[Rfam]
RNA sequence: CGCAAGGGCACUCUGUGUUAUCAUUUAAUAGUGUGAUAAAGCAAUUUGUAACCUUGCUAAAGAAAAUCAGAAUUUGCUUCUCACUUCUUAACUGUAUAACUGGUAGAGAAGUGAUCAAAUUGUGUGACAAAUCUUA
Numbered sequence: 001c002g003c004a005a006g007g008g009c010a011c012u013c014u015g016u017g018u019u020a021u022c023a024u025u026u027a028a029u030a031g032u033g034u035g036a037u038a039a040a041g042c043a044a045u046u047u048g049u050a051a052c053c054u055u056g057c058u059a060a061a062g063a064a065a066a067u068c069a070g071a072a073u074u075u076g077c078u079u080c081u082c083a084c085u086u087c088u089u090a091a092c093u094g095u096a097u098a099a100c101u102g103g104u105a106g107a108g109a110a111g112u113g114a115u116c117a118a119a120u121u122g123u124g125u126g127a128c129a130a131a132u133c134u135u136a
Stems, first nucleotide, its partner, number of pairs: 002057006010049002014043003018039006063135002068126002072120001074119002081114002084111006091104002